[Rfam]
RNA sequence: ACCGUCUUUAUCUGGGGCUGCGCACCUAUUCAAGGAUCGUAUAGUGAGAAUAGGUCUGCUGACACCCUAUGUGUUAAACACCUAACGCACCGCUUAUAUCCUUCGGGACCGAGUUGGUGCAAUUUUUGGUACC
Numbered sequence: 001a002c003c004g005u006c007u008u009u010a011u012c013u014g015g016g017g018c019u020g021c022g023c024a025c026c027u028a029u030u031c032a033a034g035g036a037u038c039g040u041a042u043a044g045u046g047a048g049a050a051u052a053g054g055u056c057u058g059c060u061g062a063c064a065c066c067c068u069a070u071g072u073g074u075u076a077a078a079c080a081c082c083u084a085a086c087g088c089a090c091c092g093c094u095u096a097u098a099u100c101c102u103u104c105g106g107g108a109c110c111g112a113g114u115u116g117g118u119g120c121a122a123u124u125u126u127u128g129g130u131a132c133c
Stems, first nucleotide, its partner, number of pairs: 007017003020059003025054007038044001087120006099108003
A member of the RNA family "U4atac minor spliceosomal RNA" from Lingula anatina, 133 nucleotides long. It scores 77 bits against the family's covariance model. Rfam 15.1 lists 1,648 matches to the family in 818 species. The family's consensus secondary structure is taken from published work. U4atac is an essential component of the minor U12-type spliceosome complex which is required for removal of the rarer class of eukaryotic introns (AT-AC, U12-type). The organism belongs to Lingula, within Eukaryota. Its Rfam clan is "U4 clan".